[Rfam]
RNA sequence: CUCAUUAUGUGUAAUAAAACACACAUGUAUCGACACAUGUGCCGGGGUGCUUCGAAAGAGGUCGGUUGCAUGGGAUACAUGGAGGCUCAAC
Numbered sequence: 001c002u003c004a005u006u007a008u009g010u011g012u013a014a015u016a017a018a019a020c021a022c023a024c025a026u027g028u029a030u031c032g033a034c035a036c037a038u039g040u041g042c043c044g045g046g047g048u049g050c051u052u053c054g055a056a057a058g059a060g061g062u063c064g065g066u067u068g069c070a071u072g073g074g075a076u077a078c079a080u081g082g083a084g085g086c087u088c089a090a091c
Base pairs, nucleotide, nucleotide: 024081025080026079027078028077029076030075031074036072037071038070039069040068041066042065043064044063049062050061051060052059053058
A member of the RNA family "t44 RNA" from Duffyella gerundensis, 91 nucleotides long. Taxonomically the source falls in Duffyella (Bacteria, Pseudomonadota, Gammaproteobacteria, Erwiniaceae). A reference for the family is Tjaden et al. (2002), "Transcriptome analysis of Escherichia coli using high-density oligonucleotide probe arrays", Nucleic Acids Res. The family's RNA type in Rfam is small RNA. The family's consensus secondary structure was predicted with LocARNA.